[Rfam]
RNA sequence: GCGCGGUCGCGUGGAGGAUCGCUCGAGGUCCGUCGUCUGGCCUCGAGCGAUCCUCCAUGCGACCGCGC
Dot-bracket structure: ((((((.((...((((((((((((((((((.(....).))))))))))))))))))...)).))))))